[Rfam]
Record summary
Rfam assigns this 94-nucleotide sequence from Geobacter sp. DSM 9736 to the family "Selenocysteine transfer RNA". A reference for the family is Mizutani and Goto (2000), "Eukaryotic selenocysteine tRNA has the 9/4 secondary structure", FEBS Lett.

RNA sequence: GGAGGCACGACGGUCGCUGGUGGGCCGCGCGGUCUUCAAAACCGUUGAGGGGGAUGAGAAAUCUCCCUGGUGGGUUCGAUUCCCAUGUGCCUCC
Numbered sequence: 001g002g003a004g005g006c007a008c009g010a011c012g013g014u015c016g017c018u019g020g021u022g023g024g025c026c027g028c029g030c031g032g033u034c035u036u037c038a039a040a041a042c043c044g045u046u047g048a049g050g051g052g053g054a055u056g057a058g059a060a061a062u063c064u065c066c067c068u069g070g071u072g073g074g075u076u077c078g079a080u081u082c083c084c085a086u087g088u089g090c091c092u093c094c
Stems, first nucleotide, its partner, number of pairs: 001094009011027005017022001029045005048068005071085004
The base pairs follow the family's consensus structure, which is taken from published work. A search with the family's covariance model found it, with a score of 76 bits. NCBI's taxonomy places the organism under Bacteria, Pseudomonadati, Geobacterales, Geobacteraceae, Geobacter.